[Rfam]
RNA sequence: CUCCUUUCGCUAAGGAGCUUCUUAUGCGAAAACUGACGGCUACUCUGAUAGUUAGCCUGAUAGGGCUGAUCGCGCUGUCCGUGUCGAACACGGCUGCUGCAUGCGGCGAUUCAGCGGGUUCGGAUUAUUCGAGCCCCAAGUAAUUGCCUCGCCCGAAUGCGCUGAGUGCGCAAUAAAAAGGCCUUCAUCUGGCGAUGAAGGCCUUUUACU
Numbered sequence: 001c002u003c004c005u006u007u008c009g010c011u012a013a014g015g016a017g018c019u020u021c022u023u024a025u026g027c028g029a030a031a032a033c034u035g036a037c038g039g040c041u042a043c044u045c046u047g048a049u050a051g052u053u054a055g056c057c058u059g060a061u062a063g064g065g066c067u068g069a070u071c072g073c074g075c076u077g078u079c080c081g082u083g084u085c086g087a088a089c090a091c092g093g094c095u096g097c098u099g100c101a102u103g104c105g106g107c108g109a110u111u112c113a114g115c116g117g118g119u120u121c122g123g124a125u126u127a128u129u130c131g132a133g134c135c136c137c138a139a140g141u142a143a144u145u146g147c148c149u150c151g152c153c154c155g156a157a158u159g160c161g162c163u164g165a166g167u168g169c170g171c172a173a174u175a176a177a178a179a180g181g182c183c184u185u186c187a188u189c190u191g192g193c194g195a196u197g198a199a200g201g202c203c204u205u206u207u208a209c210u
Stems, first nucleotide, its partner, number of pairs: 002036002005031006013022003038057003042052003063154004072100003075096001079093005105148002109145001159171004176207014